The family of this 75-nucleotide RNA sequence from Streptomyces zagrosensis is "ASpks TB sRNA". Taxonomically the source falls in Streptomyces (Bacteria, Actinomycetota, Kitasatosporales, Streptomycetaceae).

RNA sequence: CUUCAACGAACCCAGCCACAACGGCCGCUCAUCCGGCCGUCCUUGGCCAUACGUCGCCAGUAGCGCCUGGGCCUC
Numbered sequence: 001c002u003u004c005a006a007c008g009a010a011c012c013c014a015g016c017c018a019c020a021a022c023g024g025c026c027g028c029u030c031a032u033c034c035g036g037c038c039g040u041c042c043u044u045g046g047c048c049a050u051a052c053g054u055c056g057c058c059a060g061u062a063g064c065g066c067c068u069g070g071g072c073c074u075c
Stems, first nucleotide, its partner, number of pairs: 015025003032070002038065002043060003047056001049054001
Dot-bracket structure: ..............(((.....)))......((....((...(((.(.(....).).)))...))...)).....
It is annotated as an antisense RNA. A search with the family's covariance model found it, with a score of 79 bits.